The family of this 71-nucleotide sequence from Eurypyga helias is "Small nucleolar RNA SNORD18". A reference for the family is Prislei et al. (1993), "Two different snoRNAs are encoded in introns of amphibian and human L1 ribosomal protein genes", Nucleic Acids Res.
[Rfam]
RNA sequence: UGAGAGUGAUGAGAUUCCACUUCGUUGGUCCGUGUUUCUGAAACCCGUGACUUGGUGGAAGUUCUGACUUG
Numbered sequence: 001u002g003a004g005a006g007u008g009a010u011g012a013g014a015u016u017c018c019a020c021u022u023c024g025u026u027g028g029u030c031c032g033u034g035u036u037u038c039u040g041a042a043a044c045c046c047g048u049g050a051c052u053u054g055g056u057g058g059a060a061g062u063u064c065u066g067a068c069u070u071g
Stems, first nucleotide, its partner, number of pairs: 001071004
Dot-bracket structure: ((((...............................................................))))